A member of the RNA family "lysM-TM7 RNA", 154 nucleotides long.
RNA sequence: AUCUUCCAUGUCGUGUCGUACGAGAUGCUACAUAGCUUAUAAAAGUAAGCAAUAAACUAAGCAUACAGGUCGACACAUCUCUGUUCCGUCAUACGUAUACGGAAGAAAGUCGCGACCGGAAGUUUUACGACACCUGGGAACAGGCUGUCCGGAG
Numbered sequence: 001a002u003c004u005u006c007c008a009u010g011u012c013g014u015g016u017c018g019u020a021c022g023a024g025a026u027g028c029u030a031c032a033u034a035g036c037u038u039a040u041a042a043a044a045g046u047a048a049g050c051a052a053u054a055a056a057c058u059a060a061g062c063a064u065a066c067a068g069g070u071c072g073a074c075a076c077a078u079c080u081c082u083g084u085u086c087c088g089u090c091a092u093a094c095g096u097a098u099a100c101g102g103a104a105g106a107a108a109g110u111c112g113c114g115a116c117c118g119g120a121a122g123u124u125u126u127a128c129g130a131c132a133c134c135u136g137g138g139a140a141c142a143g144g145c146u147g148u149c150c151g152g153a154g
Stems, first nucleotide, its partner, number of pairs: 003122005014112002017109001022081006084104006129149003133144004
Rfam's curators put it in the seed alignment.